Rfam assigns this 110-nucleotide RNA from Serratia symbiotica to the family "Alpha operon ribosome binding site". Gene Ontology term of the family: ribosome binding. Taxonomically the source falls in Serratia symbiotica (Bacteria, Gammaproteobacteria, Yersiniaceae, Serratia). The match comes from Rfam's covariance-model search (100 bits). Rfam describes the family as follows. The bacterial alpha operon ribosome binding site is surrounded by this complex pseudoknotted structure. Translation of the mRNA produces 4 ribosomal protein products, one of which (S4) acts as a translational repressor by binding to the nested pseudoknot region. The mechanism of repression is thought to involve a conformational switch in the pseudoknot region and ribosome entrapment.
RNA sequence: UUGCUGCAAUGCUAUUUGAGUAUCCUGAAAACGGGCUUUUCAGAAUGGUGUUGCUGUAUAAAUAGUAGGAGUGAAUAGUGGCCCGUAUAGCAGGCAUUAACAUUCCUGAU
Numbered sequence: 001u002u003g004c005u006g007c008a009a010u011g012c013u014a015u016u017u018g019a020g021u022a023u024c025c026u027g028a029a030a031a032c033g034g035g036c037u038u039u040u041c042a043g044a045a046u047g048g049u050g051u052u053g054c055u056g057u058a059u060a061a062a063u064a065g066u067a068g069g070a071g072u073g074a075a076u077a078g079u080g081g082c083c084c085g086u087a088u089a090g091c092a093g094g095c096a097u098u099a100a101c102a103u104u105c106c107u108g109a110u
Base pairs, nucleotide, nucleotide: 004056006054007053008052009051010050011049012048013047024094025093026092032085033084034083035082040109041108042107